The family of this 54-nucleotide RNA sequence from Sinocyclocheilus anshuiensis is "UnaL2 LINE 3' element".
[Rfam]
RNA sequence: AGGUGAGGUGUUUGUAAGUCGCUUUGGAUAAAAGCGUUUGCUAAAUGAUUAAAU
Numbered sequence: 001a002g003g004u005g006a007g008g009u010g011u012u013u014g015u016a017a018g019u020c021g022c023u024u025u026g027g028a029u030a031a032a033a034g035c036g037u038u039u040g041c042u043a044a045a046u047g048a049u050u051a052a053a054u
Base pairs, nucleotide, nucleotide: 013043014041015040016039020036021035022034023033024032025031